mir-708 microRNA precursor family: a 69-nucleotide RNA sequence from Canis lupus. NCBI's taxonomy places the organism under Eukaryota, Vertebrata, Dipnotetrapodomorpha, Eutheria, Canis lupus. Gene Ontology terms of the family: RISC complex and miRNA-mediated post-transcriptional gene silencing. The base pairs follow the family's consensus structure, which was predicted with RNAalifold.
Nucleotides: 069
Stems, first nucleotide, its partner, number of pairs: 002066011014054005020038002023035004
Number, partner (000 for none) and nucleotide at each position: 001000a002066a003065g004064g005063a006062g007061c008060u009059u010058a011057c012056a013000a014054u015053c016052u017051a018050g019000c020038u021037g022000g023035g024034g025033g026032u027000g028000a029000a030000c031000g032026g033025c034024u035023u036000g037021c038020a039000c040000a041000u042000g043000a044000a045000c046000g047000c048000a049000a050018c051017u052016a053015g054014a055000c056012u057011g058010u059009g060008a061007g062006c063005u064004u065003c066002u067000a068000g069000a